A member of the RNA family "int-alpA RNA" from Stieleria marina, 73 nucleotides long. About the family: Acidobacteria (1 example), Planctomycetes (1 example), Proteobacteria. Taxonomically the source falls in Stieleria (Bacteria, Pseudomonadati, Pirellulales, Pirellulaceae). The base pairs follow the family's consensus structure, which is taken from published work.
RNA sequence: GCCGAAGCUAGGCUUAGCGGUUGAAAAUCGAGUCAAACCCACUCGACCGCUUCGGCACUUUCAAUUUUUUGGG
Number, nucleotide and partner (000 for none) at each position: 001g056002c055003c054004g053005a052006a051007g050008c049009u000010a000011g022012g021013c020014u019015u000016a000017g000018c000019g014020g013021u012022u011023g000024a000025a000026a000027a000028u046029c045030g044031a043032g042033u000034c000035a000036a000037a000038c071039c000040c000041a000042c032043u031044c030045g029046a028047c000048c000049g008050c007051u006052u005053c004054g003055g002056c001057a000058c000059u000060u000061u000062c000063a000064a000065u000066u000067u000068u000069u000070u000071g038072g000073g000